[Rfam]
RNA sequence: CUACUCCCUCCGUCCCAUAAUAUAAGAUGUUUUUUAACACUACAGUAGUAUCAAAAAACAUCUUACAUUAUGAGACGGAGGAAGUAA
Numbered sequence: 001c002u003a004c005u006c007c008c009u010c011c012g013u014c015c016c017a018u019a020a021u022a023u024a025a026g027a028u029g030u031u032u033u034u035u036a037a038c039a040c041u042a043c044a045g046u047a048g049u050a051u052c053a054a055a056a057a058a059c060a061u062c063u064u065a066c067a068u069u070a071u072g073a074g075a076c077g078g079a080g081g082a083a084g085u086a087a
Stems, first nucleotide, its partner, number of pairs: 003085003007081005013075002016072002019069003023065013037051001039049003
Dot-bracket structure: ..(((.(((((.((.((.(((.(((((((((((((.(.(((.....))).).))))))))))))).))).)).)).))))).)))..